[Rfam]
The family of this 76-nucleotide RNA sequence from Myotis lucifugus is "mir-9223 microRNA precursor family".
Taxonomically the source falls in Myotis (Eukaryota, Opisthokonta, Teleostomi, Sarcopterygii).
Rfam 15.1 lists 14,641 matches to the family in 28 species.
RNA sequence: AGCGGUUCUUGGGUGACACACCAUGGAAUCAGAGAGGAGGAAGCCCAAUUCCGGGGUGCGUCACCCAAGAACUGCC
Numbered sequence: 001a002g003c004g005g006u007u008c009u010u011g012g013g014u015g016a017c018a019c020a021c022c023a024u025g026g027a028a029u030c031a032g033a034g035a036g037g038a039g040g041a042a043g044c045c046c047a048a049u050u051c052c053g054g055g056g057u058g059c060g061u062c063a064c065c066c067a068a069g070a071a072c073u074g075c076c
Stems, first nucleotide, its partner, number of pairs: 002075002005072013019058004025052005

Pairs were carried over by alignment from the consensus structure, which was predicted with RNAalifold. Rfam links the family to the GO terms RISC complex and miRNA-mediated post-transcriptional gene silencing.